SAM riboswitch aptamer (S box leader): a 119-nucleotide RNA from Rossellomorea vietnamensis. The family has 457 seed sequences and 9,625 matches in Rfam 15.1. It scores 93 bits against the family's covariance model. The source organism's lineage runs through Bacteria, Bacillati, Bacilli, Caryophanales and Rossellomorea. The SAM riboswitch is found upstream of a number of genes which code for proteins involved in methionine or cysteine biosynthesis in Gram-positive bacteria.

[Rfam]
RNA sequence: CUCUUAUCCAGAGAGGUGGAGGGACUAGGCCCGAUGAAACCCGGCAACCUUCAUGUACGCAGCAGGCGUCACAUGAAAAGGUGCUAAUUCCUGCAGGCUAUCUGCCUGAAAGAUAAGAG
Numbered sequence: 001c002u003c004u005u006a007u008c009c010a011g012a013g014a015g016g017u018g019g020a021g022g023g024a025c026u027a028g029g030c031c032c033g034a035u036g037a038a039a040c041c042c043g044g045c046a047a048c049c050u051u052c053a054u055g056u057a058c059g060c061a062g063c064a065g066g067c068g069u070c071a072c073a074u075g076a077a078a079a080g081g082u083g084c085u086a087a088u089u090c091c092u093g094c095a096g097g098c099u100a101u102c103u104g105c106c107u108g109a110a111a112g113a114u115a116a117g118a119g
Base pairs, nucleotide, nucleotide: 001119002118003117004116005115006114007113008112013042015041016040017039021032022031023030026093027092028091029090043085044084045083046082048081049080050077051076052075053074054073055072056071089111094108095107096106097105098104